This 120-nucleotide sequence from Streptomyces olivoverticillatus belongs to the Rfam family "Streptomyces-metH RNA". The match comes from Rfam's covariance-model search (99 bits).
RNA sequence: GCGUCCGCACCGUGGAAUGCCCCCUGCUUCCCGCGCAGCCUGCGGCUACGCUUGCGGCGUACGCCCUCUCCAGGAGGGCGUAAAGCCGACAGCCGUCGCACACCCGGGAGCACACCCAUG
Number, nucleotide and partner (000 for none) at each position: 001g000002c000003g000004u000005c000006c000007g000008c000009a000010c000011c000012g000013u000014g000015g000016a000017a000018u000019g000020c000021c000022c000023c000024c000025u000026g000027c000028u000029u000030c000031c000032c000033g000034c000035g000036c000037a000038g000039c000040c000041u000042g000043c000044g000045g000046c000047u000048a000049c000050g000051c000052u000053u000054g000055c000056g000057g000058c000059g000060u082061a081062c080063g079064c000065c077066c076067u075068c074069u000070c000071c000072a000073g000074g068075a067076g066077g065078g000079c063080g062081u061082a060083a000084a000085g099086c098087c000088g097089a096090c095091a000092g000093c000094c000095g090096u089097c088098g086099c085100a000101c000102a000103c000104c000105c000106g000107g000108g000109a000110g000111c000112a000113c000114a000115c000116c000117c000118a000119u000120g000